[Rfam]
RNA sequence: ACAACACAAGAGGGGUGCCCCGCUGCUGGCGCAGAGAGGCUGAGAUUAUACCCUAUGAACUUGAUGCGGGCAAUACCGCCGAAAGGACUUGUUCAUAGACCGUA
Numbered sequence: 001a002c003a004a005c006a007c008a009a010g011a012g013g014g015g016u017g018c019c020c021c022g023c024u025g026c027u028g029g030c031g032c033a034g035a036g037a038g039g040c041u042g043a044g045a046u047u048a049u050a051c052c053c054u055a056u057g058a059a060c061u062u063g064a065u066g067c068g069g070g071c072a073a074u075a076c077c078g079c080c081g082a083a084a085g086g087a088c089u090u091g092u093u094c095a096u097a098g099a100c101c102g103u104a
Stems, first nucleotide, its partner, number of pairs: 006092005011054004016048001017040003021036001060085003066079004